RNA sequence: UUACCGGCGGUCUCUAAUUCGCUUGGUGCAGGUCGGGAACUGAUUGGCUGCUGCUCCUUAAUAGUGGAUUGGAUUGGAUUUAGGCCAGAUGGCGGGCCGUGACUGGAGGAAGCAGGAAUUGGAUCCCGCCUUGCAUCAACUGAAUCGGAGACCGCGGUGAGG
Numbered sequence: 001u002u003a004c005c006g007g008c009g010g011u012c013u014c015u016a017a018u019u020c021g022c023u024u025g026g027u028g029c030a031g032g033u034c035g036g037g038a039a040c041u042g043a044u045u046g047g048c049u050g051c052u053g054c055u056c057c058u059u060a061a062u063a064g065u066g067g068a069u070u071g072g073a074u075u076g077g078a079u080u081u082a083g084g085c086c087a088g089a090u091g092g093c094g095g096g097c098c099g100u101g102a103c104u105g106g107a108g109g110a111a112g113c114a115g116g117a118a119u120u121g122g123a124u125c126c127c128g129c130c131u132u133g134c135a136u137c138a139a140c141u142g143a144a145u146c147g148g149a150g151a152c153c154g155c156g157g158u159g160a161g162g
Stems, first nucleotide, its partner, number of pairs: 013149002017145004023139010034128005040122006
This 162-nucleotide sequence from Theobroma umbraticum belongs to the Rfam family "MIR168 microRNA precursor family". Lineage of the source: Eukaryota > Streptophyta > Tracheophyta > Byttnerioideae > Theobroma. A reference for the family is Reinhart et al. (2002), "MicroRNAs in plants", Genes Dev. The family has 10 seed sequences and 518 matches in Rfam 15.1.